Overview: The family of this 90-nucleotide sequence from Enterovirus deconjuncti is "Enterovirus 5' cloverleaf cis-acting replication element". About the family: This family represents a cis-regulatory element found at the 5' end of Enterovirus genomes. The element has a cloverleaf like secondary structure and is known to be a multifunctional cis-acting replication element (CRE), required for the initiation of negative strand RNA synthesis. Rfam links the family to the GO term negative stranded viral RNA replication. A reference for the family is Barton et al. (2001), "5' cloverleaf in poliovirus RNA is a cis-acting replication element required for negative-strand synthesis", EMBO J. The family's consensus secondary structure is taken from published work. Taxonomically the source falls in Enterovirus D (Viruses, Riboviria, Orthornavirae, Pisuviricota).
RNA sequence: UUAAAACAGCUCUGGGGUUGUUCCCACUCAAGGGCCCACGUGGCGGCUAGUACUCUGGUAUCUCGGUACCUUUGUACGCCUGUUUUAAUU
Numbered sequence: 001u002u003a004a005a006a007c008a009g010c011u012c013u014g015g016g017g018u019u020g021u022u023c024c025c026a027c028u029c030a031a032g033g034g035c036c037c038a039c040g041u042g043g044c045g046g047c048u049a050g051u052a053c054u055c056u057g058g059u060a061u062c063u064c065g066g067u068a069c070c071u072u073u074g075u076a077c078g079c080c081u082g083u084u085u086u087a088a089u090u
Stems, first nucleotide, its partner, number of pairs: 002087007010033001012032002015029004034044003046079002050077004057070004